[Rfam]
About this RNA
A member of the RNA family "mir-9229 microRNA precursor family" from Pipistrellus kuhlii, 76 nucleotides long. Pairs were carried over by alignment from the consensus structure, which was predicted with RNAalifold. Gene Ontology terms of the family: miRNA-mediated post-transcriptional gene silencing and RISC complex.

RNA sequence: GAGACACUCUUAUGAGGCAGGACUUGUUUCAGUAGGGCUUUGGUGCUCAGUGAGUCUGCCUCCCAAAUGUGUCACU
Numbered sequence: 001g002a003g004a005c006a007c008u009c010u011u012a013u014g015a016g017g018c019a020g021g022a023c024u025u026g027u028u029u030c031a032g033u034a035g036g037g038c039u040u041u042g043g044u045g046c047u048c049a050g051u052g053a054g055u056c057u058g059c060c061u062c063c064c065a066a067a068u069g070u071g072u073c074a075c076u
Stems, first nucleotide, its partner, number of pairs: 001075001003073005010066002014062006021056003029053003033049001035047002037044002